[Rfam]
The family of this 46-nucleotide RNA from Tetraodon nigroviridis is "Histone 3' UTR stem-loop". The organism belongs to Tetraodon, within Eukaryota. Rfam's curators write: The mRNAs of metazoan histone genes lack a poly-A tail. 3' end processing occurs at a site between a highly conserved stem-loop (modelled by this family) and a purine rich region around 20 nts downstream (the histone downstream element, or HDE). The stem-loop is bound by a 31 kDa stem-loop binding protein (SLBP - also termed the histone hairpin binding protein, or HBP). Together with U7 snRNA binding of the HDE, SLBP binding nucleate s the formation of the processing complex.
RNA sequence: ACAACGGCUCUUUUAAGAGCCACCACAUGUGACCGAAAGAGCAUUU
Numbered sequence: 001a002c003a004a005c006g007g008c009u010c011u012u013u014u015a016a017g018a019g020c021c022a023c024c025a026c027a028u029g030u031g032a033c034c035g036a037a038a039g040a041g042c043a044u045u046u
Stems, first nucleotide, its partner, number of pairs: 006021006